RNA sequence: UACCAGCAUCAAGAACGUCCUGCCGUAAAAUGCAGGGCUGCCAACCGAGGAGGAGAACCCACGGUGGCUUGGUGCGGGAGAGCGAGUCUCUCCCGUGCCAAUGCGCUGGUCGAUCGGAUCGACCGGAAAGCAAAUCUCCCUUGG
Number, nucleotide and partner (000 for none) at each position: 001u000002a000003c000004c000005a000006g104007c103008a102009u101010c000011a000012a000013g000014a000015a039016c000017g038018u037019c036020c035021u034022g033023c032024c000025g000026u000027a000028a000029a000030a000031u000032g023033c022034a021035g020036g019037g018038c017039u015040g068041c067042c066043a000044a000045c064046c063047g062048a000049g059050g058051a000052g139053g138054a137055g136056a135057a000058c050059c049060c000061a000062c047063g046064g045065u000066g042067g041068c040069u000070u000071g000072g000073u000074g000075c000076g000077g000078g000079a000080g000081a000082g000083c000084g000085a000086g000087u000088c000089u000090c000091u000092c000093c000094c000095g000096u000097g000098c000099c000100a000101a009102u008103g007104c006105g000106c126107u125108g124109g123110u122111c121112g120113a119114u118115c000116g000117g000118a114119u113120c112121g111122a110123c109124c108125g107126g106127a000128a000129a000130g000131c000132a000133a000134a000135u056136c055137u054138c053139c052140c000141u000142u000143g000144g000
Annotation
A member of the RNA family "SAM-I/IV (S-adenosyl methionine) riboswitch aptamer", 144 nucleotides long. For this family Rfam cites "The aptamer core of SAM-IV riboswitches mimics the ligand-binding site of SAM-I riboswitches" (Weinberg et al., RNA, 2008). Rfam's curators put it in the seed alignment.